[Rfam]
RNA: Group II catalytic intron D1-D4-2
Organism: Pseudoalteromonas rubra
RNA sequence: GGUGGCAGGCCCACCGAAAUCUGCUGUCGGAAGCCUGUUUCAAACCACCUCAAGCUACUGUAGUUAAGAGCUAUGGGAGUAAGCGUUGAGGUCAAAGCGCGAACAUACGUUCGGCAGGU
Number, nucleotide and partner (000 for none) at each position: 001g015002g014003u013004g012005g011006c000007a000008g000009g000010c000011c005012c004013a003014c002015c001016g041017a040018a039019a038020u037021c000022u000023g034024c033025u032026g000027u000028c000029g000030g000031a000032a025033g024034c023035c000036u000037g020038u019039u018040u017041c016042a000043a000044a000045c000046c118047a000048c091049c090050u089051c088052a087053a086054g080055c079056u000057a000058c076059u075060g000061u073062a072063g071064u070065u000066a000067a000068g000069a000070g064071c063072u062073a061074u000075g059076g058077g000078a000079g055080u054081a000082a000083g000084c000085g000086u053087u052088g051089a050090g049091g048092u000093c000094a000095a000096a000097g115098c114099g000100c000101g111102a110103a000104c000105a000106u000107a000108c000109g000110u102111u101112c000113g000114g098115c097116a000117g000118g046119u000